[Rfam]
RNA sequence: AGAUGGACUAGGUCGGGCGGUUAGGCCCCGCUCCUCGCCACGUGUGGCCUCAAGUGGGACCGAACGCCGGGGGCGUGCGGUCAGACGGCCGCGGGCCCCGCAAGCCAACGUCGAAGCCUCGUCCUGCGGGGACGGAGGUCCGGAUGGCUGUGUCUGCAGGGACACAGGCGUCCGGUUAACCGGUGCCAGUCCGUCAGGCGCGGAAGCGAGCAGCGGAGCACUGGACAUCUGUCGCUCGUAGGGUCGCGGGGUGGAGGAGGCACGCGGGACUACCCGCGGUCAGACGCCGCGCAAUCCUGGCCGUCCACUU
Numbered sequence: 001a002g003a004u005g006g007a008c009u010a011g012g013u014c015g016g017g018c019g020g021u022u023a024g025g026c027c028c029c030g031c032u033c034c035u036c037g038c039c040a041c042g043u044g045u046g047g048c049c050u051c052a053a054g055u056g057g058g059a060c061c062g063a064a065c066g067c068c069g070g071g072g073g074c075g076u077g078c079g080g081u082c083a084g085a086c087g088g089c090c091g092c093g094g095g096c097c098c099c100g101c102a103a104g105c106c107a108a109c110g111u112c113g114a115a116g117c118c119u120c121g122u123c124c125u126g127c128g129g130g131g132a133c134g135g136a137g138g139u140c141c142g143g144a145u146g147g148c149u150g151u152g153u154c155u156g157c158a159g160g161g162a163c164a165c166a167g168g169c170g171u172c173c174g175g176u177u178a179a180c181c182g183g184u185g186c187c188a189g190u191c192c193g194u195c196a197g198g199c200g201c202g203g204a205a206g207c208g209a210g211c212a213g214c215g216g217a218g219c220a221c222u223g224g225a226c227a228u229c230u231g232u233c234g235c236u237c238g239u240a241g242g243g244u245c246g247c248g249g250g251g252u253g254g255a256g257g258a259g260g261c262a263c264g265c266g267g268g269a270c271u272a273c274c275c276g277c278g279g280u281c282a283g284a285c286g287c288c289g290c291g292c293a294a295u296c297c298u299g300g301c302c303g304u305c306c307a308c309u310u
Base pairs, nucleotide, nucleotide: 001310002309004307005306006305007304008303011061012060013059014058015033016032017031018030019029020028038057039056040055041054043052044051066301067300068299069298070297071296072295075292076291077290078289079287087281088280089279090278091277092276093275094274095273097268098267099266100265101264104261105260106259109256111254116252117251118250119249120248121247122246123242124241125240126239127238128237129236130235131233132232133231134230135229137226138177140175141174142173143172144171145170146169148167149166150165151164152163153162154161155160180224181223182222183221184220185219186218190217191216192215193214194213199208200207201206